Record summary:
This 158-nucleotide RNA from a Streptomycetaceae bacterium belongs to the Rfam family "c-di-AMP riboswitch aptamer (ydaO/yuaA leader)". Gene Ontology terms of the family: regulation of gene expression and cyclic-di-AMP binding. A search with the family's covariance model found it, with a score of 74 bits. The organism belongs to Streptomycetaceae, within Bacteria. Rfam's curators write: This family represents a conserved RNA structure found upstream of the ydaO and yuaA genes in Bacillus subtilis and related genes in other bacteria.
RNA sequence: CGGACACCCCCGCCGAAUCCGGCGAGGUCUCUUCCGGACCGACCCGGAGCCGGGGAACCACCAUUCCCUGGGGUGAAUCGGCGCGGUCCGCCGCGCUGUAGGGCCCGCUUCCGGCCCGAACCCGUCAGCUCACCCGGUAGGCGGCGACGGAAGAAGGA
Dot-bracket structure: ..........((((...(((((.....................)))))((((((....((........))(((.....((((((........))))))..((((.........))))...))).........)))))).))))...............